[Rfam]
RNA sequence: GGGAAGUAUGAUCCCGCGCUCCCUGGGAGGUGUGAUCCCGUGCUUCCCGGGAGGUGUGAUCCCGCGCUCCCC
Numbered sequence: 001g002g003g004a005a006g007u008a009u010g011a012u013c014c015c016g017c018g019c020u021c022c023c024u025g026g027g028a029g030g031u032g033u034g035a036u037c038c039c040g041u042g043c044u045u046c047c048c049g050g051g052a053g054g055u056g057u058g059a060u061c062c063c064g065c066g067c068u069c070c071c072c
Base pairs, nucleotide, nucleotide: 001071002070003069004068015058016057017056018055020053022051023050024049025048026047027046028045029044031042032041033040034039
This 72-nucleotide RNA sequence from Nomascus leucogenys belongs to the Rfam family "mir-3689 microRNA precursor family".